[Rfam]
RNA sequence: CGCCUAUUUUGCGACGGCGGAGCUCGACCGCCGGUCCAAGCCAUGAUCGCCUUCAUCGACGAUCAACGUGGGACGUAUGGGGUCGAGCCGAUCUGCAGGGUCUUGCCGAUCGCCCCU
Numbered sequence: 001c002g003c004c005u006a007u008u009u010u011g012c013g014a015c016g017g018c019g020g021a022g023c024u025c026g027a028c029c030g031c032c033g034g035u036c037c038a039a040g041c042c043a044u045g046a047u048c049g050c051c052u053u054c055a056u057c058g059a060c061g062a063u064c065a066a067c068g069u070g071g072g073a074c075g076u077a078u079g080g081g082g083u084c085g086a087g088c089c090g091a092u093c094u095g096c097a098g099g100g101u102c103u104u105g106c107c108g109a110u111c112g113c114c115c116c117u
Base pairs, nucleotide, nucleotide: 016032017031018030019029020028079116080115081114082113089112090111092109093108095106096105097104098103

Background: The record is a 117-nucleotide sequence from Bradyrhizobium sp. Leo170, which matches "ALIL pseudoknot" in Rfam. By type it is a cis-regulatory element. It scores 115 bits against the family's covariance model. Pairs were carried over by alignment from the consensus structure, which is taken from published work.